Shown here is a 62-nucleotide RNA from Anaerobacillus alkalidiazotrophicus, a member of the family "RAGATH-18 RNA". It scores 59 bits against the family's covariance model. Lineage of the source: Bacteria > Bacillati > Bacillota > Caryophanales > Anaerobacillus. The family's RNA type in Rfam is small RNA.
[Rfam]
RNA sequence: CUUGUGGACUGUCACAACACACGAGAGAAGCUUCGGCAAAAUUGGACAGGUGGAAGCAAGAA
Numbered sequence: 001c002u003u004g005u006g007g008a009c010u011g012u013c014a015c016a017a018c019a020c021a022c023g024a025g026a027g028a029a030g031c032u033u034c035g036g037c038a039a040a041a042u043u044g045g046a047c048a049g050g051u052g053g054a055a056g057c058a059a060g061a062a
Base pairs, nucleotide, nucleotide: 001060002059003058004057005056009049010048011047012046013045022044023043024042030037031036